Mammalian CPEB3 ribozyme: a 74-nucleotide RNA from Parnassius apollo.
[Rfam]
RNA sequence: AUUGUAGAAUUGGUCAUUGUAGAAGGGUGCUCGUCGCGACCCCUGCCAGCCCUUUUCAGGGCUGCAGUUCUACA
Dot-bracket structure: ...........[[[[..((((((((.(.......).)]]]].....(((((((....)))))))...)))))))
Pairs were carried over by alignment from the consensus structure, which is taken from published work.
It scores 36 bits against the family's covariance model.